[Rfam]
RNA sequence: GUGCUUGAGGAGCGUUGCAACGGGGUCCUCCCGUCAGGCUCAAGCACCACUUUGUAUUCUCCUCGUGCUGUAUGCACUGAGUCGAGACACUAAGUGCAAACUGCAACGGCGCUCAUUUUUC
Numbered sequence: 001g002u003g004c005u006u007g008a009g010g011a012g013c014g015u016u017g018c019a020a021c022g023g024g025g026u027c028c029u030c031c032c033g034u035c036a037g038g039c040u041c042a043a044g045c046a047c048c049a050c051u052u053u054g055u056a057u058u059c060u061c062c063u064c065g066u067g068c069u070g071u072a073u074g075c076a077c078u079g080a081g082u083c084g085a086g087a088c089a090c091u092a093a094g095u096g097c098a099a100a101c102u103g104c105a106a107c108g109g110c111g112c113u114c115a116u117u118u119u120u121c
Base pairs, nucleotide, nucleotide: 002046003045004044005043006042007041008040021033022032023031024030025029
SAH (S-adenosyl-L-homocysteine) riboswitch aptamer: a 121-nucleotide sequence from Arenicella chitinivorans. Rfam 15.1 lists 1,354 matches to the family in 1,132 species. A search with the family's covariance model found it, with a score of 54 bits. For this family Rfam cites "Riboswitches that sense S-adenosylhomocysteine and activate genes involved in coenzyme recycling" (Wang et al., Mol Cell, 2008).